Nucleotides: 074
Base pairs, nucleotide, nucleotide: 001073002072003071004070005069006068007067010026011025012024013023028044029043030042031041032040050066051065052064053063054062
Number, partner (000 for none) and nucleotide at each position: 001073g002072g003071c004070c005069c006068g007067g008000u009000a010026g011025u012024u013023c014000a015000a016000c017000u018000g019000g020000a021000u022000a023013g024012a025011a026010u027000a028044u029043c030042a031041g032040a033000u034000u035000u036000c037000g038000g039000c040032u041031c042030u043029g044028a045000u046000g047000g048000u049000u050066g051065g052064g053063g054062g055000u056000u057000c058000g059000a060000a061000u062054c063053c064052c065051u066050u067007c068006c069005g070004g071003g072002u073001c074000a
Annotation: Shown here is a 74-nucleotide RNA sequence from Cryomorphaceae bacterium 1068, a member of the family "tRNA". It scores 62 bits against the family's covariance model. Rfam classes the family as a transfer RNA. A reference for the family is Hou (1993), "The tertiary structure of tRNA and the development of the genetic code", Trends Biochem Sci.